[Rfam]
RNA sequence: AACCACACUAUCGAUGAAUGGAUUCACCCGUGAGAUGAUAUGGUUGUUCCACCCGUGAGAUGACGUGGUUGUUCCAUCUAAGAUGAGGACGUGGCAUCAUAUUAAUUUCGUGCGAUGGCUGGUAAUAGAAUGCCAUGUCCUCGUCUUAGGUGUAAUAGCCACAUCAUCUCACGGGUGAAUCUAUACAUCGAUAAUGUAGUU
Numbered sequence: 001a002a003c004c005a006c007a008c009u010a011u012c013g014a015u016g017a018a019u020g021g022a023u024u025c026a027c028c029c030g031u032g033a034g035a036u037g038a039u040a041u042g043g044u045u046g047u048u049c050c051a052c053c054c055g056u057g058a059g060a061u062g063a064c065g066u067g068g069u070u071g072u073u074c075c076a077u078c079u080a081a082g083a084u085g086a087g088g089a090c091g092u093g094g095c096a097u098c099a100u101a102u103u104a105a106u107u108u109c110g111u112g113c114g115a116u117g118g119c120u121g122g123u124a125a126u127a128g129a130a131u132g133c134c135a136u137g138u139c140c141u142c143g144u145c146u147u148a149g150g151u152g153u154a155a156u157a158g159c160c161a162c163a164u165c166a167u168c169u170c171a172c173g174g175g176u177g178a179a180u181c182u183a184u185a186c187a188u189c190g191a192u193a194a195u196g197u198a199g200u201u
Stems, first nucleotide, its partner, number of pairs: 001201003005197003009193007018184002021181008030172004035167005041161008076151002079148002082145002088139003094133004100127005111122001